[Rfam]
RNA sequence: AGAGGUUGAAGAUGAGGCCACAGCAGAUGUGCUAACAGUGUAGCCAUGUCAGAUUCUGAAAAUCUGAGAAUUCUGCU
Numbered sequence: 001a002g003a004g005g006u007u008g009a010a011g012a013u014g015a016g017g018c019c020a021c022a023g024c025a026g027a028u029g030u031g032c033u034a035a036c037a038g039u040g041u042a043g044c045c046a047u048g049u050c051a052g053a054u055u056c057u058g059a060a061a062a063u064c065u066g067a068g069a070a071u072u073c074u075g076c077u
Stems, first nucleotide, its partner, number of pairs: 013046001016045003022077006029041003050066006
Mammalian CPEB3 ribozyme: a 77-nucleotide RNA from Crocodylus porosus.